[Rfam]
RNA sequence: AAACCUUGAGGACGGAACGGGCAGCCGUCGCCCCUCGGAACAACUCUGUGUACAAGAGCCGAGGUUAGGAGAUGUGGGAAAAAGUCACCCCACCUAGGUGU
Numbered sequence: 001a002a003a004c005c006u007u008g009a010g011g012a013c014g015g016a017a018c019g020g021g022c023a024g025c026c027g028u029c030g031c032c033c034c035u036c037g038g039a040a041c042a043a044c045u046c047u048g049u050g051u052a053c054a055a056g057a058g059c060c061g062a063g064g065u066u067a068g069g070a071g072a073u074g075u076g077g078g079a080a081a082a083a084g085u086c087a088c089c090c091c092a093c094c095u096a097g098g099u100g101u
Stems, first nucleotide, its partner, number of pairs: 001101001003099004008094001011029005020086003031069001033064006074093005
RNA: skipping-rope RNA